[Rfam]
RNA sequence: CCCGAGCAGCCCUCGUACGGAGCCCGUCCACGUUCGCCUCGGCGACUGGAUGCAUGGGCUCGCGAAGGACCGCUGGGCGUGGAGGUUUCGCCAUG
Numbered sequence: 001c002c003c004g005a006g007c008a009g010c011c012c013u014c015g016u017a018c019g020g021a022g023c024c025c026g027u028c029c030a031c032g033u034u035c036g037c038c039u040c041g042g043c044g045a046c047u048g049g050a051u052g053c054a055u056g057g058g059c060u061c062g063c064g065a066a067g068g069a070c071c072g073c074u075g076g077g078c079g080u081g082g083a084g085g086u087u088u089c090g091c092c093a094u095g
Stems, first nucleotide, its partner, number of pairs: 014064003020061006026051003034045004
Source information: The family of this 95-nucleotide sequence is "malK-III RNA". It is annotated as a cis-regulatory element. Rfam's curators put it in the seed alignment.